[Rfam]
Background: Small nucleolar RNA snoR14: an 87-nucleotide RNA sequence from Vanilla planifolia. A search with the family's covariance model found it, with a score of 47 bits. Clan: SNORD110 clan. Rfam links the family to the GO terms RNA processing and nucleolus. For this family Rfam cites "Multiple snoRNA gene clusters from Arabidopsis" (Brown et al., RNA, 2001). The source organism's lineage runs through Eukaryota, Streptophyta, Euphyllophyta, Orchidaceae and Vanilla. It is annotated as a C/D-box small nucleolar RNA.
RNA sequence: GUGAAGUGAUGAUGAAACUCUUGAUCUAUCAAUGCACUGAUUUAUUAGGUGUGAUAUAUACAUGAAAUCUUGAUAGAUUCUUAUUAC
Numbered sequence: 001g002u003g004a005a006g007u008g009a010u011g012a013u014g015a016a017a018c019u020c021u022u023g024a025u026c027u028a029u030c031a032a033u034g035c036a037c038u039g040a041u042u043u044a045u046u047a048g049g050u051g052u053g054a055u056a057u058a059u060a061c062a063u064g065a066a067a068u069c070u071u072g073a074u075a076g077a078u079u080c081u082u083a084u085u086a087c
Stems, first nucleotide, its partner, number of pairs: 001087004